[Rfam]
This 102-nucleotide sequence from Plutella xylostella belongs to the Rfam family "mir-8517 microRNA precursor family". Rfam links the family to the GO terms miRNA-mediated post-transcriptional gene silencing and RISC complex.
RNA sequence: UUAGUGGACGCUUUAGCUAUUGAACUGUUUUGUCCCUCUCCGUCAAAGAAUAAAUUGUUCUCUGUCAGAGAGUGACAGUUCAAUAGCUAAAGCGUCAGUAAC
Numbered sequence: 001u002u003a004g005u006g007g008a009c010g011c012u013u014u015a016g017c018u019a020u021u022g023a024a025c026u027g028u029u030u031u032g033u034c035c036c037u038c039u040c041c042g043u044c045a046a047a048g049a050a051u052a053a054a055u056u057g058u059u060c061u062c063u064g065u066c067a068g069a070g071a072g073u074g075a076c077a078g079u080u081c082a083a084u085a086g087c088u089a090a091a092g093c094g095u096c097a098g099u100a101a102c
Base pairs, nucleotide, nucleotide: 001101002100003099005097006096011092012091013090014089015088016087017086018085019084020083021082022081023080024079025078026077027076028075029069030068031067032066034064049059050058051057052056